[Rfam]
RNA sequence: GCGUUUGCGCUCCGCCCCGCCGCCACCUAUAUCGGCAAUGUCGGGUUUUACCCGGCUAUGGCGAUAAACUGCGGCGUACAAUAGGCGCAGCGGACCCGGGGGCAGUACCCGGCGGCUCCACCAUAAGGUGGUGUUUCUGGACACCGUUUCUGACGGGGCCGAACUAGGAUCGACGUGUGUUGAAAAGCGCUGUUUUCGCUCGGAAUGGGACCACCGCAACGGCCCAUUACACAAGUGCCAACGAUAACGAAGCACUCGCGAUUGCGGCGUAACUGAGGGCCUCACGGCCUAAGGUUACUCCAAAAUAGCGCGGUCGGACCCCACCGGGCAACAGAAGGGGAUUCC
Numbered sequence: 001g002c003g004u005u006u007g008c009g010c011u012c013c014g015c016c017c018c019g020c021c022g023c024c025a026c027c028u029a030u031a032u033c034g035g036c037a038a039u040g041u042c043g044g045g046u047u048u049u050a051c052c053c054g055g056c057u058a059u060g061g062c063g064a065u066a067a068a069c070u071g072c073g074g075c076g077u078a079c080a081a082u083a084g085g086c087g088c089a090g091c092g093g094a095c096c097c098g099g100g101g102g103c104a105g106u107a108c109c110c111g112g113c114g115g116c117u118c119c120a121c122c123a124u125a126a127g128g129u130g131g132u133g134u135u136u137c138u139g140g141a142c143a144c145c146g147u148u149u150c151u152g153a154c155g156g157g158g159c160c161g162a163a164c165u166a167g168g169a170u171c172g173a174c175g176u177g178u179g180u181u182g183a184a185a186a187g188c189g190c191u192g193u194u195u196u197c198g199c200u201c202g203g204a205a206u207g208g209g210a211c212c213a214c215c216g217c218a219a220c221g222g223c224c225c226a227u228u229a230c231a232c233a234a235g236u237g238c239c240a241a242c243g244a245u246a247a248c249g250a251a252g253c254a255c256u257c258g259c260g261a262u263u264g265c266g267g268c269g270u271a272a273c274u275g276a277g278g279g280c281c282u283c284a285c286g287g288c289c290u291a292a293g294g295u296u297a298c299u300c301c302a303a304a305a306u307a308g309c310g311c312g313g314u315c316g317g318a319c320c321c322c323a324c325c326g327g328g329c330a331a332c333a334g335a336a337g338g339g340g341a342u343u344c345c
Base pairs, nucleotide, nucleotide: 040056041055042054043053044052060200061199062198063197064196071193072192073191074190075189076188077187086179087178088177090176091175092174096112097111098110099109100108113161114160115159116158117157118156119155201216202215203214206226207225208224211222212221311326312325313324314323317343318342320340321339322338